[Rfam]
RNA: Small nucleolar RNA snoR74
Organism: Brassica rapa
RNA sequence: GAAAAAGCAGAGGUUUGAAGCAAUUUACAGAUCUAACGUAUACUUCAGGGACAUUGAAUUGGUCAUCGUGAUUGGGUGAAUCUUAGUUUCAUUUUCUUAUAGCUUUAAAGAUUCAGUACAUGAUGGUACAUUG
Numbered sequence: 001g002a003a004a005a006a007g008c009a010g011a012g013g014u015u016u017g018a019a020g021c022a023a024u025u026u027a028c029a030g031a032u033c034u035a036a037c038g039u040a041u042a043c044u045u046c047a048g049g050g051a052c053a054u055u056g057a058a059u060u061g062g063u064c065a066u067c068g069u070g071a072u073u074g075g076g077u078g079a080a081u082c083u084u085a086g087u088u089u090c091a092u093u094u095u096c097u098u099a100u101a102g103c104u105u106u107a108a109a110g111a112u113u114c115a116g117u118a119c120a121u122g123a124u125g126g127u128a129c130a131u132u133g
Base pairs, nucleotide, nucleotide: 005045006044007043011034012033014031015030016029017028062127063126064125065124066123067122068121069120070119077115078114079113080112081111082110083109